RNA sequence: GAGUAGCCAUGCACAGAUAUGUUGUGUUACUUGAUACAAUCUUCCAAAAUAGAGAUGGGGCAUUUCCUGCUUGCAUACCUUGAAGAUUGGCUUGCAGGCCUCAGAUCCUCCUAUAUUUAA
Numbered sequence: 001g002a003g004u005a006g007c008c009a010u011g012c013a014c015a016g017a018u019a020u021g022u023u024g025u026g027u028u029a030c031u032u033g034a035u036a037c038a039a040u041c042u043u044c045c046a047a048a049a050u051a052g053a054g055a056u057g058g059g060g061c062a063u064u065u066c067c068u069g070c071u072u073g074c075a076u077a078c079c080u081u082g083a084a085g086a087u088u089g090g091c092u093u094g095c096a097g098g099c100c101u102c103a104g105a106u107c108c109u110c111c112u113a114u115a116u117u118u119a120a
Stems, first nucleotide, its partner, number of pairs: 001032003005028001006025002009022003056113003069099007078090002
Rfam assigns this 120-nucleotide RNA from Marchantia polymorpha to the family "Small nucleolar RNA snoR104". The family's consensus secondary structure was predicted with WAR. Gene Ontology terms of the family: nucleolus and RNA processing. Rfam 15.1 lists 612 matches to the family in 228 species. For this family Rfam cites "Experimental RNomics: identification of 140 candidates for small non-messenger RNAs in the plant Arabidopsis thaliana" (Marker et al., Curr Biol, 2002). NCBI's taxonomy places the organism under Eukaryota, Streptophytina, Marchantiopsida, Marchantiales, Marchantia polymorpha.